[Rfam]
RNA: SAM riboswitch aptamer (S box leader)
Organism: Polycladomyces abyssicola
RNA sequence: CUCUUAUCAAGAGAGGUGGAGGGACUGGCCCGAUGAAACCCGGCAACCGUCCGCGGUAUGUACGCGGAAAUGGUGCCAAUUCCUGCAGAGCCCAUCGGUUCUGGCAGAUGAGAG
Numbered sequence: 001c002u003c004u005u006a007u008c009a010a011g012a013g014a015g016g017u018g019g020a021g022g023g024a025c026u027g028g029c030c031c032g033a034u035g036a037a038a039c040c041c042g043g044c045a046a047c048c049g050u051c052c053g054c055g056g057u058a059u060g061u062a063c064g065c066g067g068a069a070a071u072g073g074u075g076c077c078a079a080u081u082c083c084u085g086c087a088g089a090g091c092c093c094a095u096c097g098g099u100u101c102u103g104g105c106a107g108a109u110g111a112g113a114g
Base pairs, nucleotide, nucleotide: 001114002113003112004111005110006109007108008107013041015040016039017038021031022030023029025085027083028082042077043076044075045074047073048072050068051067052066053065054064055063081106086103087102088101089100090099091098